[Rfam]
RNA sequence: GAGAGAAGGUCUCUCGACUAAGAUGUACAGGCAUAUUAGUCAAACCGCCUUAUGGGGCUUAGUCUUCACGACUUGGUCUUGAGCGAUAGGGUCAAAGGCACUGCUACCGUUUGUAUGG
Numbered sequence: 001g002a003g004a005g006a007a008g009g010u011c012u013c014u015c016g017a018c019u020a021a022g023a024u025g026u027a028c029a030g031g032c033a034u035a036u037u038a039g040u041c042a043a044a045c046c047g048c049c050u051u052a053u054g055g056g057g058c059u060u061a062g063u064c065u066u067c068a069c070g071a072c073u074u075g076g077u078c079u080u081g082a083g084c085g086a087u088a089g090g091g092u093c094a095a096a097g098g099c100a101c102u103g104c105u106a107c108c109g110u111u112u113g114u115a116u117g118g
Base pairs, nucleotide, nucleotide: 001015002014003013004012005011016041017040018039019038020037021036023034024033025032026031045118046117048091049090050089051088052087053086054080055079057077058076059075061073062072063071064070097114098112100110101109
Shown here is a 118-nucleotide RNA sequence, a member of the family "Group II catalytic intron D1-D4-2".
It is one of the family's seed sequences.
Gene Ontology term of the family: Group II intron splicing.
Rfam describes the family as follows. Group II introns are found in rRNA, tRNA and mRNA of organelles in fungi, plants and protists, and also in mRNA in bacteria.
Pairs were carried over by alignment from the consensus structure.